[Rfam]
RNA sequence: UGACGGGGGCCCGCACAAGCGGAGGAGCAUGUGGUUUAAUUCGAUGAUACGCGAGGAACCUUACCUGGGCUUGAAUGUGAGUGACCGAUGCCGAAAGGUGUCUUCCCUUCGGGGCACAAAACAAGGUGCUGCAUGGCUGUCGUCAGCUCGUGCCGUGAGGUGUUGGGUUAAGUCCCGCAACGAGCGCAACCCCUAUCUUUAGUUGCCAUCAGGUUAAGCUGGGGACUCUAAAGAGACUGCCUACGUAAGUAGUGAGGAAGGUGGGGAUGACGUCAAGUCAUCAUGGCCCUUACGUCCAGGGCUACACACGUGCUACAAUGGCCGCUACAAAGGGUUGCCAUAUGGUGACAUAGAGCUAAUCCCUAAAAAGCGGCCUCAGUUCGGAUUGAAGUCUGCAACUCGACUUCAUGAAGUUGGAUUCGCUAGUAAUCGGAUAUCAGCAAUGAUCCGGUGAAUACGUUCCCGGGCCUUGUACACACCGCCCGUCAAGCCAUGGAAGUUGGGAGUGCCUGAAGUCGGUAACCGCAAGGAUCCGCCUAGGGCAAUACCAGUAACUGGGGCUAAGUCGUAACAAGGUAACCGUACCGGAAGGUGUGGUUG
Numbered sequence: 001u002g003a004c005g006g007g008g009g010c011c012c013g014c015a016c017a018a019g020c021g022g023a024g025g026a027g028c029a030u031g032u033g034g035u036u037u038a039a040u041u042c043g044a045u046g047a048u049a050c051g052c053g054a055g056g057a058a059c060c061u062u063a064c065c066u067g068g069g070c071u072u073g074a075a076u077g078u079g080a081g082u083g084a085c086c087g088a089u090g091c092c093g094a095a096a097g098g099u100g101u102c103u104u105c106c107c108u109u110c111g112g113g114g115c116a117c118a119a120a121a122c123a124a125g126g127u128g129c130u131g132c133a134u135g136g137c138u139g140u141c142g143u144c145a146g147c148u149c150g151u152g153c154c155g156u157g158a159g160g161u162g163u164u165g166g167g168u169u170a171a172g173u174c175c176c177g178c179a180a181c182g183a184g185c186g187c188a189a190c191c192c193c194u195a196u197c198u199u200u201a202g203u204u205g206c207c208a209u210c211a212g213g214u215u216a217a218g219c220u221g222g223g224g225a226c227u228c229u230a231a232a233g234a235g236a237c238u239g240c241c242u243a244c245g246u247a248a249g250u251a252g253u254g255a256g257g258a259a260g261g262u263g264g265g266g267a268u269g270a271c272g273u274c275a276a277g278u279c280a281u282c283a284u285g286g287c288c289c290u291u292a293c294g295u296c297c298a299g300g301g302c303u304a305c306a307c308a309c310g311u312g313c314u315a316c317a318a319u320g321g322c323c324g325c326u327a328c329a330a331a332g333g334g335u336u337g338c339c340a341u342a343u344g345g346u347g348a349c350a351u352a353g354a355g356c357u358a359a360u361c362c363c364u365a366a367a368a369a370g371c372g373g374c375c376u377c378a379g380u381u382c383g384g385a386u387u388g389a390a391g392u393c394u395g396c397a398a399c400u401c402g403a404c405u406u407c408a409u410g411a412a413g414u415u416g417g418a419u420u421c422g423c424u425a426g427u428a429a430u431c432g433g434a435u436a437u438c439a440g441c442a443a444u445g446a447u448c449c450g451g452u453g454a455a456u457a458c459g460u461u462c463c464c465g466g467g468c469c470u471u472g473u474a475c476a477c478a479c480c481g482c483c484c485g486u487c488a489a490g491c492c493a494u495g496g497a498a499g500u501u502g503g504g505a506g507u508g509c510c511u512g513a514a515g516u517c518g519g520u521a522a523c524c525g526c527a528a529g530g531a532u533c534c535g536c537c538u539a540g541g542g543c544a545a546u547a548c549c550a551g552u553a554a555c556u557g558g559g560g561c562u563a564a565g566u567c568g569u570a571a572c573a574a575g576g577u578a579a580c581c582g583u584a585c586c587g588g589a590a591g592g593u594g595u596g597g598u599u600g
Stems, first nucleotide, its partner, number of pairs: 001476002003473003007470007015460002019423005024316001026314008034305002040055004064300007076123003081117003087102006105114003125289002128287004134283002136278003139274001141272002146185006152161003164177004191266004196234007206223002210221003237257002240254001241252004320375007332363003337356002342351003382413001387408007429452007479575001481572001484568002489562004494557003499552005505546001507544004515537001517535003523530002577600010
RNA: Bacterial small subunit ribosomal RNA, nucleotides 912 to 1511